[Rfam]
RNA sequence: ACAGUCUGAAAAUCACUUGGGGUAUUCUGUGGCCCUUGGUGCGAUAACUGUGCCAACAGCAGAGGGAGCAUUAAACUCAUUGCCCACAGUAAAGUGUGGGAAGUGAUACCCAUGUAAGGCCUUC
Number, nucleotide and partner (000 for none) at each position: 001a000002c000003a000004g000005u000006c050007u000008g048009a000010a045011a000012a000013u000014c041015a040016c039017u000018u000019g000020g000021g034022g033023u032024a000025u000026u000027c000028u000029g000030u000031g000032g023033c022034c021035c000036u000037u000038g000039g016040u015041g014042c000043g000044a000045u010046a000047a000048c008049u000050g006051u000052g000053c000054c000055a000056a000057c000058a000059g000060c000061a000062g000063a000064g000065g121066g000067a000068g115069c114070a113071u112072u000073a000074a000075a000076c000077u106078c105079a104080u103081u102082g000083c000084c000085c098086a097087c096088a000089g000090u000091a000092a000093a000094g000095u000096g087097u086098g085099g000100g000101a000102a081103g080104u079105g078106a077107u000108a000109c000110c000111c000112a071113u070114g069115u068116a000117a000118g000119g000120c000121c065122u000123u000124c000
The record is a 124-nucleotide RNA from Bucco capensis, which matches "Small nucleolar RNA ACA64" in Rfam. The match comes from Rfam's covariance-model search (44 bits). Pairs were carried over by alignment from the consensus structure, which was predicted with WAR. The organism belongs to Bucco, within Eukaryota. It is annotated as an H/ACA-box small nucleolar RNA.